[Rfam]
RNA sequence: AGUAUAGAGGUUCUAGCUACCCUCUCUAAAAAACUAAGGAAAC
Number, nucleotide and partner (000 for none) at each position: 001a000002g000003u000004a000005u000006a025007g024008a023009g022010g021011u000012u000013c000014u036015a035016g000017c000018u000019a000020c000021c010022c009023u008024c007025u006026c000027u000028a000029a000030a000031a000032a000033a000034c000035u015036a014037a000038g000039g000040a000041a000042a000043c000
The record is a 43-nucleotide sequence from Mesobacillus zeae, which matches "PreQ1 (pre queuosine) riboswitch aptamer" in Rfam.
On this family, see Reader et al., J Biol Chem 2004: "Identification of four genes necessary for biosynthesis of the modified nucleoside queuosine".
The organism belongs to Mesobacillus, within Bacteria.
A search with the family's covariance model found it, with a score of 43 bits.
Rfam links the family to the GO term queuosine biosynthetic process.
About the family: This family is a bacterial riboswitch that binds to the metabolite preQ1, an intermediate in the biosynthesis of the modified nucleoside queuosine from GTP. One example of this riboswitch is located in the leader of the Bacillus subtilis ykvJKLM (queCDEF) operon which encodes four genes necessary for queuosine production. PreQ1 binding to the riboswitch aptamer is thought to induce premature transcription termination within the leader to down-regulate expression of these genes.